Overview:
A member of the RNA family "Small nucleolar RNA SNORD22" from Sphenodon punctatus, 127 nucleotides long. The literature on the family includes a 1996 paper in Nature by Tycowski et al., "A mammalian gene with introns instead of exons generating stable RNA products". Pairs were carried over by alignment from the consensus structure, which was predicted with PFOLD. It is annotated as a C/D-box small nucleolar RNA. NCBI's taxonomy places the organism under Eukaryota, Euteleostomi, Tetrapoda, Sauropsida, Sphenodon. Gene Ontology terms of the family: nucleolus and RNA processing.

[Rfam]
RNA sequence: UUCCAAUGAGGAAAGCAGUACCUGUCUUACUGUCUGUCCAGGUGCCAGAACCUGCAAAGGUGAACCCACUGGUGCCGGCAGCAUGAGAGGAGGAGAGCUUGUUCCAAAAGGAAUAGUCUGAUGGGAU
Numbered sequence: 001u002u003c004c005a006a007u008g009a010g011g012a013a014a015g016c017a018g019u020a021c022c023u024g025u026c027u028u029a030c031u032g033u034c035u036g037u038c039c040a041g042g043u044g045c046c047a048g049a050a051c052c053u054g055c056a057a058a059g060g061u062g063a064a065c066c067c068a069c070u071g072g073u074g075c076c077g078g079c080a081g082c083a084u085g086a087g088a089g090g091a092g093g094a095g096a097g098c099u100u101g102u103u104c105c106a107a108a109a110g111g112a113a114u115a116g117u118c119u120g121a122u123g124g125g126a127u
Stems, first nucleotide, its partner, number of pairs: 001126004